[Rfam]
RNA: HNH endonuclease-associated RNA and ORF (HEARO) RNA
Organism: Clostridium tagluense
RNA sequence: GUCAACUACCACUAGCCUAAAGGCAUAGUGGCUUGUAGGAGAUAAUAUCAAUCAUUAAGCCAAGUUGAAUAGCCUAAGUAUCAAAUUACUACGUUAUAUGAGAAUAUAUAGUUACCCAUGGAUACUUCUCGAGUCUGUGGCUCUAAGCUUUAAUAUUAAACAUCUCUGAGGGUAGGAGAAGUGUAUUAAAGAUAUAAAACCUUAUAUAACAUUGGCGAAGAGAACUUAC
Number, nucleotide and partner (000 for none) at each position: 001g000002u068003c067004a066005a065006c064007u063008a000009c000010c031011a000012c028013u027014a000015g000016c023017c022018u000019a000020a000021a000022g017023g016024c000025a000026u000027a013028g012029u000030g000031g010032c059033u058034u057035g056036u000037a000038g000039g000040a000041g000042a000043u000044a000045a000046u000047a000048u000049c000050a000051a000052u000053c000054a000055u000056u035057a034058a033059g032060c000061c000062a000063a007064g006065u005066u004067g003068a002069a000070u000071a000072g216073c215074c214075u000076a212077a090078g089079u088080a087081u000082c000083a000084a000085a000086u000087u080088a079089c078090u077091a000092c000093g210094u209095u208096a207097u206098a205099u204100g203101a202102g201103a000104a000105u000106a000107u000108a000109u000110a000111g000112u146113u145114a000115c000116c140117c139118a138119u137120g136121g135122a134123u133124a000125c000126u224127u223128c222129u221130c220131g000132a000133g123134u122135c121136u120137g119138u118139g117140g116141c000142u000143c000144u000145a113146a112147g000148c191149u190150u189151u188152a187153a186154u185155a184156u183157u000158a000159a000160a182161c181162a000163u179164c178165u177166c176167u174168g173169a000170g000171g000172g000173u168174a167175g000176g166177a165178g164179a163180a000181g161182u160183g156184u155185a154186u153187u152188a151189a150190a149191g148192a000193u000194a000195u000196a000197a000198a000199a000200c000201c102202u101203u100204a099205u098206a097207u096208a095209a094210c093211a000212u076213u000214g074215g073216c072217g000218a000219a000220g130221a129222g128223a127224a126225c000226u000227u000228a000229c000